A member of the RNA family "7SK RNA" from Jacana jacana, 308 nucleotides long. By type it is a non-coding RNA gene. The literature on the family includes a 1991 paper in Mol Cell Biol by Wassarman and Steitz, "Structural analyses of the 7SK ribonucleoprotein (RNP), the most abundant human small RNP of unknown function". About the family: 7SK was discovered as an abundant small nuclear RNA in the mid-70s but a possible function has only recently been suggested. Two independent studies have found that 7SK RNA binds the CDK9/cyclin T complex (known as elongation factor P-TEFb). P-TEFb activates transcription by phosphorylating the C-terminal domain of RNA polymerase II. This process is negatively regulated by the 7SK RNP. The secondary structure of 7SK RNA shown here was proposed by Wasserman and Steitz on the basis of chemical modification and enzymatic cleavage experiments. This family contains a number of annotated pseudogenes and 7SK derived repeats. The threshold is artificially high to minimise the pseudogene count. The family is grouped with related families in Rfam's "7SK clan". The family's consensus secondary structure is taken from published work. The organism belongs to Jacana, within Eukaryota.
RNA sequence: GGAUGUGAGGGCGAUCUGGAUGCUACAUCUGUUACCCCAUUGAUCACUAGGGUUGAUUCAGCUGAUCUGGCUGGCUAGGUGGGUGUCCCCUUCCUCCCUCUCUGCUCCAUGUGCAUCUCUCCCGAAGGUGCGCACUUGGUUGAAGAGGACGACCUUCCCCGACAGAGACAUACUGUUCAUCGGUCAAGGGUAUACGGUAGCUGUGCUCCCCUGCUAGAACCUCCAAACAAGCUCAAGGUCUAUUUGUAGGAUAACAUAGGGUAGUCAAGCUUCCAAGACUGCAGACGCAUCCAAGUGAGGCACUGCAU
Numbered sequence: 001g002g003a004u005g006u007g008a009g010g011g012c013g014a015u016c017u018g019g020a021u022g023c024u025a026c027a028u029c030u031g032u033u034a035c036c037c038c039a040u041u042g043a044u045c046a047c048u049a050g051g052g053u054u055g056a057u058u059c060a061g062c063u064g065a066u067c068u069g070g071c072u073g074g075c076u077a078g079g080u081g082g083g084u085g086u087c088c089c090c091u092u093c094c095u096c097c098c099u100c101u102c103u104g105c106u107c108c109a110u111g112u113g114c115a116u117c118u119c120u121c122c123c124g125a126a127g128g129u130g131c132g133c134a135c136u137u138g139g140u141u142g143a144a145g146a147g148g149a150c151g152a153c154c155u156u157c158c159c160c161g162a163c164a165g166a167g168a169c170a171u172a173c174u175g176u177u178c179a180u181c182g183g184u185c186a187a188g189g190g191u192a193u194a195c196g197g198u199a200g201c202u203g204u205g206c207u208c209c210c211c212u213g214c215u216a217g218a219a220c221c222u223c224c225a226a227a228c229a230a231g232c233u234c235a236a237g238g239u240c241u242a243u244u245u246g247u248a249g250g251a252u253a254a255c256a257u258a259g260g261g262u263a264g265u266c267a268a269g270c271u272u273c274c275a276a277g278a279c280u281g282c283a284g285a286c287g288c289a290u291c292c293a294a295g296u297g298a299g300g301c302a303c304u305g306c307a308u
Stems, first nucleotide, its partner, number of pairs: 001108003005102001007100005013093002018090002025086009035074002037070003042067004047061002118168004122139004127135001140162003147158003200270003206264002209261005222251003227247005